[Rfam]
Nucleotides: 085
Stems, first nucleotide, its partner, number of pairs: 012037002017032006040079004045075003048070003055064003
Number, partner (000 for none) and nucleotide at each position: 001000c002000u003000c004000a005000g006000a007000a008000a009000a010000u011000a012037g013036c014000a015000a016000a017032c018031u019030u020029a021028u022027u023000g024000a025000a026000a027022a028021a029020u030019g031018g032017g033000g034000g035000c036013g037012c038000a039000a040079a041078g042077u043076c044000a045075c046074g047073g048070g049069u050068c051000u052000a053000a054000a055064g056063c057062u058000u059000u060000a061000u062057a063056g064055c065000u066000a067000u068050g069049g070048c071000g072000g073047c074046u075045g076043g077042a078041c079040u080000g081000c082000c083000u084000g085000g
The family of this 85-nucleotide RNA sequence from Virgibacillus salinus is "c-di-GMP-I riboswitch aptamer".